Shown here is a 292-nucleotide RNA sequence from Candidozyma pseudohaemuli, a member of the family "Nuclear RNase P".
By type it is a ribozyme.
Rfam describes the family as follows. Ribonuclease P (RNase P) is a ubiquitous endoribonuclease, found in archaea, bacteria and eukarya as well as chloroplasts and mitochondria. Its best characterised activity is the generation of mature 5'-ends of tRNAs by cleaving the 5'-leader elements of precursor-tRNAs. Cellular RNase Ps are ribonucleoproteins. RNA from bacterial RNase Ps retains its catalytic activity in the absence of the protein subunit, i.e. it is a ribozyme.
Its family is annotated with ribonuclease P activity, ribonuclease P complex and tRNA processing in the Gene Ontology.

[Rfam]
RNA sequence: CUCGCAGCAAGCCGCAAGUACCCGCCGACGUAACAGGUUCGAAUCCGGCCUGGGAUAUUCCAAUGCGGGUGGGAAAUUCGGUGAUUCUCCCCAUCCCCUUUCUUCGGAAAGCGGUCAAUCUGCUCCUGAGAGCCUCCAGGCGUGGACUCACGCUGGGCGUCGCCAUCAGAAAACACAGCCAUCUUGUGUGGCAUGGGAGGCGGCGCGGAUGGUUGGUCUUCUGCCCUAGGGCGGAAUGGCUGUUGAGUGCAAUUUGCGGCCUCUGGCACCCGAUACCGAUCAAUGCUGCGAG
Numbered sequence: 001c002u003c004g005c006a007g008c009a010a011g012c013c014g015c016a017a018g019u020a021c022c023c024g025c026c027g028a029c030g031u032a033a034c035a036g037g038u039u040c041g042a043a044u045c046c047g048g049c050c051u052g053g054g055a056u057a058u059u060c061c062a063a064u065g066c067g068g069g070u071g072g073g074a075a076a077u078u079c080g081g082u083g084a085u086u087c088u089c090c091c092c093a094u095c096c097c098c099u100u101u102c103u104u105c106g107g108a109a110a111g112c113g114g115u116c117a118a119u120c121u122g123c124u125c126c127u128g129a130g131a132g133c134c135u136c137c138a139g140g141c142g143u144g145g146a147c148u149c150a151c152g153c154u155g156g157g158c159g160u161c162g163c164c165a166u167c168a169g170a171a172a173a174c175a176c177a178g179c180c181a182u183c184u185u186g187u188g189u190g191g192c193a194u195g196g197g198a199g200g201c202g203g204c205g206c207g208g209a210u211g212g213u214u215g216g217u218c219u220u221c222u223g224c225c226c227u228a229g230g231g232c233g234g235a236a237u238g239g240c241u242g243u244u245g246a247g248u249g250c251a252a253u254u255u256g257c258g259g260c261c262u263c264u265g266g267c268a269c270c271c272g273a274u275a276c277c278g279a280u281c282a283a284u285g286c287u288g289c290g291a292g
Stems, first nucleotide, its partner, number of pairs: 001292004007286003013259001017255002020070005035058001037056003079278005093210004122133004139154006157206007178192003261266001
Dot-bracket structure: ((((..(((...[...[[.(((((..........(.(((..............))).).......)))))........(((((.........((((.........................((((....)))).....((((((....))))))..(((((((..............(((.........))).......)))))))))))...........................................]]...].(....).......))))).....)))..))))